[Rfam]
RNA: permuted transfer-messenger RNA
Organism: Stenotrophomonas sp. BIIR7
RNA sequence: GGCUGUAUGAAGCAGAGAGGAUGCGUUGCGGACGCGGGUUCGAUUCCCGCCAGCUCCACCACCUGUGCACCCGCAUGGAGCCCAGCUGAAGGGGCUGCACUGGUUUCGACGUGGCGAGCAGUCAAUGUGGACAGCCCGAGAGGCGACCGACGAAAUCGGCGCAAAACCAAGUAAAGGCUAAUGACCCUUACUACAAUCAGAUCGAGCAGAAAGAACUGCUUGUUGCCUGA
Number, nucleotide and partner (000 for none) at each position: 001g136002g135003c134004u133005g132006u000007a000008u000009g000010a000011a000012g000013c000014a000015g123016a000017g000018a000019g000020g000021a000022u000023g000024c116025g115026u114027u000028g112029c111030g110031g000032a000033c000034g050035c049036g048037g047038g046039u000040u000041c000042g000043a000044u000045u000046c038047c037048c036049g035050c034051c097052a096053g095054c094055u093056c092057c091058a000059c000060c000061a000062c000063c000064u000065g000066u000067g000068c000069a000070c000071c000072c000073g000074c000075a000076u000077g000078g000079a000080g000081c000082c000083c000084a000085g000086c000087u000088g000089a000090a000091g057092g056093g055094g054095c053096u052097g051098c000099a000100c000101u000102g000103g000104u000105u000106u000107c000108g000109a000110c030111g029112u028113g000114g026115c025116g024117a000118g000119c000120a000121g000122u000123c015124a000125a000126u000127g000128u000129g000130g000131a000132c005133a004134g003135c002136c001137c152138g151139a000140g000141a000142g000143g000144c000145g000146a000147c000148c000149g000150a000151c138152g137153a000154a000155a000156u000157c000158g000159g000160c000161g000162c000163a000164a000165a000166a000167c000168c000169a000170a000171g000172u000173a000174a000175a000176g000177g000178c000179u000180a000181a000182u000183g000184a000185c000186c000187c000188u000189u000190a000191c000192u000193a000194c000195a000196a000197u000198c000199a000200g000201a000202u000203c000204g000205a000206g000207c000208a000209g000210a000211a000212a000213g000214a000215a000216c000217u000218g000219c000220u000221u000222g000223u000224u000225g000226c000227c000228u000229g000230a000